[Rfam]
RNA sequence: AGACAAGGCUUUGGUAAAACUGGCCGCUUAGCGAGUAAUCGCUUUGAACAAGCAUUUUGUUAAUUCGGGGAAGGCUAAACCAGCAAUGGCAAGUUGAUCCCGAGCCAAGCCUCAAGGGAAACCUGAGGAAGGUGUAACGACUAGAAAGAGUAGGCUAAAAACAUUGUUCAUGCCGAAAUUUCCACGAAGGCAAAACUCCUUGAAAGUGAUAUAAUUAAAUAUAGAAAGAAACGGAUAACACCAAUGGAGGUGGAAGUAAUGAAACUGUAUAAGCCGAAAAAGGGUGAUGGUAAGCAAGCAGUGCUUAUUGUUUUUACUAUGUUGCUUUUUUUAGUACUAGGUAUGUAUUUAGCGGCUGAGGGAUUACCUUCACCAAGUGCUCUGAUUAUUACUUUCUUUUUGAUAAGUGGCUUAAUAUCAAUUAUUGGUGGGGUAUUUGGAUGGAUAUUCAAAUUUUAAGCAACGAUGAGUCCGUGAGGACUCUUUUUUUAUGUCAACUUUCAAGGAUGAAGAGAUAGUCUGAACACUAUGGAAACAUGGUG
Numbered sequence: 001a002g003a004c005a006a007g008g009c010u011u012u013g014g015u016a017a018a019a020c021u022g023g024c025c026g027c028u029u030a031g032c033g034a035g036u037a038a039u040c041g042c043u044u045u046g047a048a049c050a051a052g053c054a055u056u057u058u059g060u061u062a063a064u065u066c067g068g069g070g071a072a073g074g075c076u077a078a079a080c081c082a083g084c085a086a087u088g089g090c091a092a093g094u095u096g097a098u099c100c101c102g103a104g105c106c107a108a109g110c111c112u113c114a115a116g117g118g119a120a121a122c123c124u125g126a127g128g129a130a131g132g133u134g135u136a137a138c139g140a141c142u143a144g145a146a147a148g149a150g151u152a153g154g155c156u157a158a159a160a161a162c163a164u165u166g167u168u169c170a171u172g173c174c175g176a177a178a179u180u181u182c183c184a185c186g187a188a189g190g191c192a193a194a195a196c197u198c199c200u201u202g203a204a205a206g207u208g209a210u211a212u213a214a215u216u217a218a219a220u221a222u223a224g225a226a227a228g229a230a231a232c233g234g235a236u237a238a239c240a241c242c243a244a245u246g247g248a249g250g251u252g253g254a255a256g257u258a259a260u261g262a263a264a265c266u267g268u269a270u271a272a273g274c275c276g277a278a279a280a281a282g283g284g285u286g287a288u289g290g291u292a293a294g295c296a297a298g299c300a301g302u303g304c305u306u307a308u309u310g311u312u313u314u315u316a317c318u319a320u321g322u323u324g325c326u327u328u329u330u331u332u333a334g335u336a337c338u339a340g341g342u343a344u345g346u347a348u349u350u351a352g353c354g355g356c357u358g359a360g361g362g363a364u365u366a367c368c369u370u371c372a373c374c375a376a377g378u379g380c381u382c383u384g385a386u387u388a389u390u391a392c393u394u395u396c397u398u399u400u401u402g403a404u405a406a407g408u409g410g411c412u413u414a415a416u417a418u419c420a421a422u423u424a425u426u427g428g429u430g431g432g433g434u435a436u437u438u439g440g441a442u443g444g445a446u447a448u449u450c451a452a453a454u455u456u457u458a459a460g461c462a463a464c465g466a467u468g469a470g471u472c473c474g475u476g477a478g479g480a481c482u483c484u485u486u487u488u489u490u491a492u493g494u495c496a497a498c499u500u501u502c503a504a505g506g507a508u509g510a511a512g513a514g515a516u517a518g519u520c521u522g523a524a525c526a527c528u529a530u531g532g533a534a535a536c537a538u539g540g541u542g
Stems, first nucleotide, its partner, number of pairs: 001021002032041003055195004060190002065103006074094003104133002110127001112125001137521001139520005197507011527540005
Dot-bracket structure: ((.................))..........(((....))).............[[[[.[[...((((((...(((...............)))...))))))((....(.(............).)....))...(.(((((.............................................]].]]]].(((((((((((.................................................................................................................................................................................................................................................................................................)))))))))))........)))))).....(((((....)))))..
Annotation: The family of this 542-nucleotide RNA from Ligilactobacillus saerimneri is "Group I catalytic intron". Group I catalytic introns are large self-splicing ribozymes. The match comes from Rfam's covariance-model search (56 bits). Its family is annotated with Group I intron splicing in the Gene Ontology.